This 199-nucleotide RNA sequence from Owenia fusiformis belongs to the Rfam family "Small nucleolar RNA SNORA53". Rfam links the family to the GO terms RNA processing and nucleolus. It is annotated as an H/ACA-box small nucleolar RNA. The base pairs follow the family's consensus structure, which was predicted with RNAalifold.
Nucleotides: 199
Base pairs, nucleotide, nucleotide: 002108003107004106005105006104007103008102010096011095012094013093014092018090019089020088021087022086023085024084025083026059027058028057031053032052033051034050036049038046039045040044062076063075064074065073066072122194123193125191126190130186132184133183134182142176143175144174145173146172147171148170150162151161152160
Number, partner (000 for none) and nucleotide at each position: 001000u002108a003107c004106a005105c006104a007103u008102u009000c010096c011095u012094u013093a014092g015000a016000u017000c018090c019089a020088c021087u022086u023085c024084u025083g026059g027058g028057a029000g030000a031053g032052c033051u034050g035000g036049a037000u038046g039045u040044g041000u042000u043000u044040c045039a046038c047000u048000u049036u050034c051033a052032g053031u054000u055000a056000a057028u058027c059026c060000a061000u062076c063075a064074a065073c066072u067000u068000u069000a070000u071000u072066g073065g074064u075063u076062g077000u078000a079000c080000c081000a082000u083025c084024a085023g086022a087021a088020g089019u090018g091000c092014u093013u094012g095011a096010g097000u098000c099000a100000u101000u102008a103007g104006u105005g106004u107003g108002u109000g110000a111000g112000a113000g114000c115000a116000a117000u118000a119000u120000a121000c122194c123193u124000u125191c126190a127000c128000u129000u130186g131000u132184a133183g134182c135000a136000u137000u138000c139000a140000g141000c142176u143175u144174g145173u146172a147171c148170a149000u150162u151161c152160a153000c154000u155000c156000c157000u158000a159000g160152u161151g162150a163000c164000u165000c166000a167000a168000c169000u170148u171147g172146u173145a174144c175143a176142a177000g178000c179000a180000u181000a182134g183133c184132u185000g186130c187000u188000c189000g190126u191125g192000u193123g194122g195000a196000c197000a198000u199000u